[Rfam]
RNA sequence: AGAGUCCUGAGGUGUACGUGGGACACUCAUCGUUUUGAGCCAACAUUUUCACAUUGGGAGCCUGCAGUUUCAAUCUGGAUAACAAGCCUCUAAUGAAGUGGACGUUUGAAGGAUUGAACAGGGCACCCACCUGCCAAGAGCAGGCUUCAAAACUAAGUUCGUUUGACGGCACAUCGGGACUCUU
Dot-bracket structure: .(((((((((.((((.(((............((((((((((..............(((.((((......(((((((.....((...((.((.....)).))..)).....)))))))...)))).)))..............))).)))))))............))))))).)))))))))..
RNA: 6S / SsrS RNA